[Rfam]
RNA: mir-9242 microRNA precursor family
Organism: Myotis myotis
RNA sequence: GGCCUCCCUCUGUGGGGCAAUCGAUCUGCGGACCCCCACCAUCGAUUGCCCCACAGAGGGAGGCC
Numbered sequence: 001g002g003c004c005u006c007c008c009u010c011u012g013u014g015g016g017g018c019a020a021u022c023g024a025u026c027u028g029c030g031g032a033c034c035c036c037c038a039c040c041a042u043c044g045a046u047u048g049c050c051c052c053a054c055a056g057a058g059g060g061a062g063g064c065c
Base pairs, nucleotide, nucleotide: 001065002064003063004062005061006060007059008058009057010056011055012054013053014052015051016050017049018048019047020046021045022044023043024042025041030037031036